[Rfam]
Rfam assigns this 90-nucleotide RNA from Zingiber officinale to the family "Small nucleolar RNA Z161/Z228". The match comes from Rfam's covariance-model search (53 bits). The family's RNA type in Rfam is C/D-box small nucleolar RNA. Rfam links the family to the GO terms RNA processing and nucleolus. A reference for the family is Chen et al. (2003), "The high diversity of snoRNAs in plants: identification and comparative study of 120 snoRNA genes from Oryza sativa", Nucleic Acids Res.
RNA sequence: AAAUCAAAUGAUGAGUAUUCACAUUUUUAUAAUCUCAUGACGGUCGUCUGAGAUAGCUCUUUGCUGAUAAAACUGAGAUCUCUGAUGUUU
Numbered sequence: 001a002a003a004u005c006a007a008a009u010g011a012u013g014a015g016u017a018u019u020c021a022c023a024u025u026u027u028u029a030u031a032a033u034c035u036c037a038u039g040a041c042g043g044u045c046g047u048c049u050g051a052g053a054u055a056g057c058u059c060u061u062u063g064c065u066g067a068u069a070a071a072a073c074u075g076a077g078a079u080c081u082c083u084g085a086u087g088u089u090u
Stems, first nucleotide, its partner, number of pairs: 001090004055061002